[Rfam]
RNA sequence: AAUUUAUAUAGAGAGGUGGAGGGACUGGCCCGAUGAAAUCUCGGCAACCGAACCAGCGCGUAUGCUGUAUCGCAGUGCCAAUUCCAGUGGAAUGGUAUAUUCCUGCAGAUAAGAG
Numbered sequence: 001a002a003u004u005u006a007u008a009u010a011g012a013g014a015g016g017u018g019g020a021g022g023g024a025c026u027g028g029c030c031c032g033a034u035g036a037a038a039u040c041u042c043g044g045c046a047a048c049c050g051a052a053c054c055a056g057c058g059c060g061u062a063u064g065c066u067g068u069a070u071c072g073c074a075g076u077g078c079c080a081a082u083u084c085c086a087g088u089g090g091a092a093u094g095g096u097a098u099a100u101u102c103c104u105g106c107a108g109a110u111a112a113g114a115g
Stems, first nucleotide, its partner, number of pairs: 003113005013042005021031003025087004043079004048075001050071001083107001089103005
A member of the RNA family "SAM riboswitch aptamer (S box leader)" from Aneurinibacillus migulanus, 115 nucleotides long. Lineage of the source: Bacteria > Bacillati > Bacillota > Caryophanales > Aneurinibacillus. A search with the family's covariance model found it, with a score of 69 bits.